[Rfam]
RNA sequence: GGGGGUGUACUGGCUUUGACAGGUGUUUAAGGAAUAAUGGGCAGUGGUGUUGUAGACCUAAAUACUAUAAAUUCUAAAUGCAAACAAAAAAGAAUCAGCUAAUGAAUUCAACGUUGACGUUAACUUAUUAGCUAACUCAAACUCAAACCUAGCUUACGCUUUUUAAUUAAAUAUAUUUCGAGCUAGUCAAACAACCUAAACUUGUGUGGAUUGUUUGUUAUAAACAAGUUGAUUGGUAAAAUUUGCUAUUUAUUUAUCAAUUAAAUAAAAAUAGCACAAUUAGCUUUAAUUUUGUAGUUUUUAAAAAGCUAAUUGUUAUUUAAAAACUAAUAAACUGUAGACUGUUAUUUGCUGAUGCAUGUGGACCGGGGUUCGACUCCCCGCAUCUCCACCA
Numbered sequence: 001g002g003g004g005g006u007g008u009a010c011u012g013g014c015u016u017u018g019a020c021a022g023g024u025g026u027u028u029a030a031g032g033a034a035u036a037a038u039g040g041g042c043a044g045u046g047g048u049g050u051u052g053u054a055g056a057c058c059u060a061a062a063u064a065c066u067a068u069a070a071a072u073u074c075u076a077a078a079u080g081c082a083a084a085c086a087a088a089a090a091a092g093a094a095u096c097a098g099c100u101a102a103u104g105a106a107u108u109c110a111a112c113g114u115u116g117a118c119g120u121u122a123a124c125u126u127a128u129u130a131g132c133u134a135a136c137u138c139a140a141a142c143u144c145a146a147a148c149c150u151a152g153c154u155u156a157c158g159c160u161u162u163u164u165a166a167u168u169a170a171a172u173a174u175a176u177u178u179c180g181a182g183c184u185a186g187u188c189a190a191a192c193a194a195c196c197u198a199a200a201c202u203u204g205u206g207u208g209g210a211u212u213g214u215u216u217g218u219u220a221u222a223a224a225c226a227a228g229u230u231g232a233u234u235g236g237u238a239a240a241a242u243u244u245g246c247u248a249u250u251u252a253u254u255u256a257u258c259a260a261u262u263a264a265a266u267a268a269a270a271a272u273a274g275c276a277c278a279a280u281u282a283g284c285u286u287u288a289a290u291u292u293u294g295u296a297g298u299u300u301u302u303a304a305a306a307a308g309c310u311a312a313u314u315g316u317u318a319u320u321u322a323a324a325a326a327c328u329a330a331u332a333a334a335c336u337g338u339a340g341a342c343u344g345u346u347a348u349u350u351g352c353u354g355a356u357g358c359a360u361g362u363g364g365a366c367c368g369g370g371g372u373u374c375g376a377c378u379c380c381c382c383g384c385a386u387c388u389c390c391a392c393c394a
Stems, first nucleotide, its partner, number of pairs: 001390007020363002023360004028355001029353001032350009042337004046058002051069005188217006196209003200229006232261009245275005276316010290305003295330001297328001301326002367383005
RNA: transfer-messenger RNA